[Rfam]
RNA sequence: UUCUGGCCGACGCGCGCGUUUGCGCGUGUCUUUGGCUUAUGCUACUCAUAGGCCAGGCGGAGGCUGCGCUCG
Numbered sequence: 001u002u003c004u005g006g007c008c009g010a011c012g013c014g015c016g017c018g019u020u021u022g023c024g025c026g027u028g029u030c031u032u033u034g035g036c037u038u039a040u041g042c043u044a045c046u047c048a049u050a051g052g053c054c055a056g057g058c059g060g061a062g063g064c065u066g067c068g069c070u071c072g
Stems, first nucleotide, its partner, number of pairs: 006023002009020004024067002028064004034058001037055001